This 82-nucleotide sequence from Kryptolebias marmoratus belongs to the Rfam family "mir-219 microRNA precursor family". The family has 92 seed sequences and 1,318 matches in Rfam 15.1. NCBI's taxonomy places the organism under Eukaryota, Deuterostomia, Vertebrata, Osteoglossocephalai, Kryptolebias. Rfam links the family to the GO terms miRNA-mediated post-transcriptional gene silencing and RISC complex.
RNA sequence: GUUGCGACUGAUUGUCCAAACGCAAUUCUUGAGUAAAAUCCAACUCAAGCCCCAAGAAUUGUGUAUGGACAUCUGUUGCUGC
Numbered sequence: 001g002u003u004g005c006g007a008c009u010g011a012u013u014g015u016c017c018a019a020a021c022g023c024a025a026u027u028c029u030u031g032a033g034u035a036a037a038a039u040c041c042a043a044c045u046c047a048a049g050c051c052c053c054a055a056g057a058a059u060u061g062u063g064u065a066u067g068g069a070c071a072u073c074u075g076u077u078g079c080u081g082c
Stems, first nucleotide, its partner, number of pairs: 002081001004079004010073003014070005021063011